[Rfam]
RNA sequence: GGGCUUGUACUGGUUUCGACGGGGGUUCGGAAGUUGGAGAAGCCAUCCGUAGCGGGACACUACGUUAAAAGUUCCAAUUAAAUAUAAACGCAGACAAUAGAGAAUUAGCGUACGCUGCCUAAUAUGGCGGCAGUCGGCCUUAGGUCAUCCGCUGCUUAAGUAACCGGCUUCAACGAGGCGGAGCACUUCGUUUCCAAAGCUUUGAGGAGAUGAAAGAAAUUAUGAAGCUACUAAAGUCAGGAGCCUGUCAUUAGGCGUCUGAUGGAGGGAAUGUCAGUAUAAUGACUGUGAUGGGAGAUGCUCUGAUGGAUGGGCUUUCGGACGCGGGUUCAACUCCCGCCAGGUCCACUU
Number, nucleotide and partner (000 for none) at each position: 001g347002g346003g345004c344005u343006u342007g341008u000009a000010c000011u000012g000013g000014u000015u000016u000017c000018g000019a000020c320021g319022g318023g317024g316025g315026u314027u313028c312029g311030g000031a000032a000033g307034u306035u305036g304037g303038a302039g301040a000041a299042g000043c294044c293045a292046u291047c290048c064049g063050u062051a061052g060053c000054g075055g074056g073057a072058c071059a000060c052061u051062a050063c049064g048065u000066u000067a000068a000069a000070a000071g058072u057073u056074c055075c054076a000077a000078u000079u000080a000081a000082a000083u000084a000085u000086a000087a000088a000089c000090g000091c000092a000093g000094a000095c000096a000097a000098u000099a000100g000101a000102g000103a000104a000105u000106u000107a000108g000109c000110g000111u000112a000113c000114g131115c130116u129117g128118c127119c000120u000121a000122a000123u000124a000125u000126g000127g118128c117129g116130g115131c114132a169133g168134u167135c166136g165137g164138c000139c160140u159141u158142a157143g156144g155145u154146c000147a000148u181149c180150c000151g000152c177153u176154g145155c144156u143157u142158a141159a140160g139161u000162a000163a000164c137165c136166g135167g134168c133169u132170u000171c000172a000173a000174c000175g000176a153177g152178g000179c000180g149181g148182a000183g000184c000185a000186c000187u214188u213189c212190g211191u210192u209193u208194c207195c000196a000197a000198a229199g228200c227201u226202u225203u224204g000205a000206g000207g194208a193209g192210a191211u190212g189213a188214a187215a000216g000217a000218a000219a000220u000221u000222a000223u000224g203225a202226a201227g200228c199229u198230a000231c268232u267233a000234a000235a000236g263237u262238c261239a260240g259241g000242a000243g256244c255245c254246u000247g286248u285249c284250a283251u000252u279253a278254g245255g244256c243257g000258u000259c240260u239261g238262a237263u236264g000265g000266a000267g232268g231269g000270a000271a000272u000273g000274u000275c000276a000277g000278u253279a252280u000281a000282a000283u250284g249285a248286c247287u000288g000289u000290g047291a046292u045293g044294g043295g000296a000297g000298a000299u041300g000301c039302u038303c037304u036305g035306a034307u033308g000309g000310a000311u029312g028313g027314g026315c025316u024317u023318u022319c021320g020321g000322a000323c000324g340325c339326g338327g337328g336329u000330u000331c000332a000333a000334c000335u000336c328337c327338c326339g325340c324341c007342a006343g005344g004345u003346c002347c001348a000349c000350u000351u000
RNA: transfer-messenger RNA
Organism: Dorea sp. CAG:317